[Rfam]
RNA sequence: CUCUUAUUGAGAGUGGCGGAGGGACUGGCCCGAUGAAGCCCGGCAACCUUUCUAGAACUCGUUCUAAAAAAGGUGCUAAAUCCUGCAAAGUGCAUAAUGUGCUUUGGAAAAUAAGAG
Numbered sequence: 001c002u003c004u005u006a007u008u009g010a011g012a013g014u015g016g017c018g019g020a021g022g023g024a025c026u027g028g029c030c031c032g033a034u035g036a037a038g039c040c041c042g043g044c045a046a047c048c049u050u051u052c053u054a055g056a057a058c059u060c061g062u063u064c065u066a067a068a069a070a071a072g073g074u075g076c077u078a079a080a081u082c083c084u085g086c087a088a089a090g091u092g093c094a095u096a097a098u099g100u101g102c103u104u105u106g107g108a109a110a111a112u113a114a115g116a117g
Stems, first nucleotide, its partner, number of pairs: 001117008013041001015040003021031003025085001027083002042077004047073002049069003081109001086106008
The record is a 117-nucleotide sequence from Oceanobacillus oncorhynchi, which matches "SAM riboswitch aptamer (S box leader)" in Rfam. NCBI's taxonomy places the organism under Bacteria, Bacillati, Bacillota, Caryophanales, Oceanobacillus.